RNA sequence: CUGGCUUCUCUUGAAUUCGUUGCGCUUGCGAGCCAUUGUGGCUCGUGGGCGGUGCCAAGAAUGUGAAGCAAAAGGAACGGUUCCUCUCGCUAUCCAGCGAGGAAUUUAUGUGAUGCGAUUGGACGUCGAGGAACUACACUU
Numbered sequence: 001c002u003g004g005c006u007u008c009u010c011u012u013g014a015a016u017u018c019g020u021u022g023c024g025c026u027u028g029c030g031a032g033c034c035a036u037u038g039u040g041g042c043u044c045g046u047g048g049g050c051g052g053u054g055c056c057a058a059g060a061a062u063g064u065g066a067a068g069c070a071a072a073a074g075g076a077a078c079g080g081u082u083c084c085u086c087u088c089g090c091u092a093u094c095c096a097g098c099g100a101g102g103a104a105u106u107u108a109u110g111u112g113a114u115g116c117g118a119u120u121g122g123a124c125g126u127c128g129a130g131g132a133a134c135u136a137c138a139c140u141u
Base pairs, nucleotide, nucleotide: 001068002067004064005063009060010059011058012057013056016054018051019050025049026048027047028046029045030044031043032042033041034040035039080134081133082132083131084130085129086128088125089124093123094122095121096120097119103111
Small nucleolar RNA snoR136: a 141-nucleotide sequence from Paspalum vaginatum. Gene Ontology terms of the family: nucleolus and RNA processing. The base pairs follow the family's consensus structure, which was predicted with mfold. The family's RNA type in Rfam is H/ACA-box small nucleolar RNA. On this family, see Chen and Wu, Nucleic Acids Res 2009: "Mining small RNA sequencing data: a new approach to identify small nucleolar RNAs in Arabidopsis".